[Rfam]
RNA sequence: UAGUGAGGUAGAGGUUGCGCGGAUGAUGAGUCGCAUGUGUGAGGCUGAUGGGGCCGAUGAUCAUAUGCAAAAGGCAUCAGCGCCGAAGCAUAAGGAAGCCAUUCAUUCUUUAUGCUGGGUCUGCAUUGAAUAAGUGCAGGACUGCCGCGGGUAUUCCCGCGGAGGGCUAUCCGGAGA
Numbered sequence: 001u002a003g004u005g006a007g008g009u010a011g012a013g014g015u016u017g018c019g020c021g022g023a024u025g026a027u028g029a030g031u032c033g034c035a036u037g038u039g040u041g042a043g044g045c046u047g048a049u050g051g052g053g054c055c056g057a058u059g060a061u062c063a064u065a066u067g068c069a070a071a072a073g074g075c076a077u078c079a080g081c082g083c084c085g086a087a088g089c090a091u092a093a094g095g096a097a098g099c100c101a102u103u104c105a106u107u108c109u110u111u112a113u114g115c116u117g118g119g120u121c122u123g124c125a126u127u128g129a130a131u132a133a134g135u136g137c138a139g140g141a142c143u144g145c146c147g148c149g150g151g152u153a154u155u156c157c158c159g160c161g162g163a164g165g166g167c168u169a170u171c172c173g174g175a176g177a
Stems, first nucleotide, its partner, number of pairs: 007171005017083004022078004033068007087116011117143002120140008145162007
RNA: Lysine riboswitch aptamer
Organism: Bacillus licheniformis